[Rfam]
RNA sequence: AGCCGUGUGAUGAGCACAUAGCGAACUAUUCUUUCGCCUUUUACUAAAGAAUACCGUGUGCGCGUCACAUCUUAGCGGCAUACGCUAGUUUUUGGGAAGGGUUCUCUUUUCAGAGGGC
Numbered sequence: 001a002g003c004c005g006u007g008u009g010a011u012g013a014g015c016a017c018a019u020a021g022c023g024a025a026c027u028a029u030u031c032u033u034u035c036g037c038c039u040u041u042u043a044c045u046a047a048a049g050a051a052u053a054c055c056g057u058g059u060g061c062g063c064g065u066c067a068c069a070u071c072u073u074a075g076c077g078g079c080a081u082a083c084g085c086u087a088g089u090u091u092u093u094g095g096g097a098a099g100g101g102u103u104c105u106c107u108u109u110u111c112a113g114a115g116g117g118c
Stems, first nucleotide, its partner, number of pairs: 003078004008067005014061005027053008096118001102117006
RNA: U5 spliceosomal RNA